RNA sequence: UUCUAUAAGUGCAAAAUCAGGGCAACUUGAUGACGCAAAGCUACGGCUUCUGAUACAGGGUCGCCGGGGUGUCAGGG
Numbered sequence: 001u002u003c004u005a006u007a008a009g010u011g012c013a014a015a016a017u018c019a020g021g022g023c024a025a026c027u028u029g030a031u032g033a034c035g036c037a038a039a040g041c042u043a044c045g046g047c048u049u050c051u052g053a054u055a056c057a058g059g060g061u062c063g064c065c066g067g068g069g070u071g072u073c074a075g076g077g
Base pairs, nucleotide, nucleotide: 011036012035016031017030018029019028020027021026039070041068042067044066045065046064048060049059050058051057052056